[Rfam]
The record is a 112-nucleotide RNA sequence from Blautia sp. CAG:37, which matches "SAM riboswitch aptamer (S box leader)" in Rfam. Gene Ontology term of the family: regulation of gene expression. The family's consensus secondary structure is taken from published work. A search with the family's covariance model found it, with a score of 73 bits.
RNA sequence: CUCUUAUUCAGAGUGGUGGAGAUACAUAGGAUCUGUGAAACCACGGCAACCCCCGGCAGAUUGGUCUGCAUGGGAAGGUGCCAGCCUGAGCGAAAUUUUCGAACAAUAAGGG
Dot-bracket structure: ((((((((....(((((...(((...[..[)))......)))))((((.((((((...............))))..))))))....]..]((((...))))...))))))))